[Rfam]
RNA sequence: UGCAAUAGGGAAUCGGCUCUCAAGGGCGGUCGGCUCAUCUCCGGACAAGGAGGUGAUGCCAUGACAGUGUACGAGGCGUUAAGUCUGAUGAUCGCAUUCGGGUCGUUAGUCGUCGCGAUGCUGUCCUUCGAUAAAAAGAAGUAGACCUCCCUUGAGCUUGGUCGGCCGGGAGGUCUACUUCUGCGCUUCGCCAAUCGGAGUCGAUCGCCUUGAAGGGCAACCUGUUGCAUGGCCGCGGAUGUUGCUGCAUCCGCG
Numbered sequence: 001u002g003c004a005a006u007a008g009g010g011a012a013u014c015g016g017c018u019c020u021c022a023a024g025g026g027c028g029g030u031c032g033g034c035u036c037a038u039c040u041c042c043g044g045a046c047a048a049g050g051a052g053g054u055g056a057u058g059c060c061a062u063g064a065c066a067g068u069g070u071a072c073g074a075g076g077c078g079u080u081a082a083g084u085c086u087g088a089u090g091a092u093c094g095c096a097u098u099c100g101g102g103u104c105g106u107u108a109g110u111c112g113u114c115g116c117g118a119u120g121c122u123g124u125c126c127u128u129c130g131a132u133a134a135a136a137a138g139a140a141g142u143a144g145a146c147c148u149c150c151c152u153u154g155a156g157c158u159u160g161g162u163c164g165g166c167c168g169g170g171a172g173g174u175c176u177a178c179u180u181c182u183g184c185g186c187u188u189c190g191c192c193a194a195u196c197g198g199a200g201u202c203g204a205u206c207g208c209c210u211u212g213a214a215g216g217g218c219a220a221c222c223u224g225u226u227g228c229a230u231g232g233c234c235g236c237g238g239a240u241g242u243u244g245c246u247g248c249a250u251c252c253g254c255g
Stems, first nucleotide, its partner, number of pairs: 001229005007223003013204006019156008028146001030144001035056008063125007077090002099117002102114001168188003206217001208215001234255009
RNA: BsrG
Organism: Paenibacillus antri